[Rfam]
RNA sequence: AAUCGGCGUACAUCAGAGGGACGUGUCCCUGAAUGAGGAGCCGAAGGGAGCAAGCCACAGCAAAAGCGUUUGGUCAGAAAGUUUACUUCCUUAUCAAACGGAAAGCUGAAACAUCAAGUGUCGGGUAGAGUUUGGUAGGCUUCGGCUCGAAGAACUUAGACCCG
Numbered sequence: 001a002a003u004c005g006g007c008g009u010a011c012a013u014c015a016g017a018g019g020g021a022c023g024u025g026u027c028c029c030u031g032a033a034u035g036a037g038g039a040g041c042c043g044a045a046g047g048g049a050g051c052a053a054g055c056c057a058c059a060g061c062a063a064a065a066g067c068g069u070u071u072g073g074u075c076a077g078a079a080a081g082u083u084u085a086c087u088u089c090c091u092u093a094u095c096a097a098a099c100g101g102a103a104a105g106c107u108g109a110a111a112c113a114u115c116a117a118g119u120g121u122c123g124g125g126u127a128g129a130g131u132u133u134g135g136u137a138g139g140c141u142u143c144g145g146c147u148c149g150a151a152g153a154a155c156u157u158a159g160a161c162c163c164g
Base pairs, nucleotide, nucleotide: 003044004043005042006041007040011038013036014035015034017030018029019028020027046056047055058108059107060106061105067100068099069098070097071096072095073094074093122164123163124162125161126160128157129156130155131154132153133152138147139146140145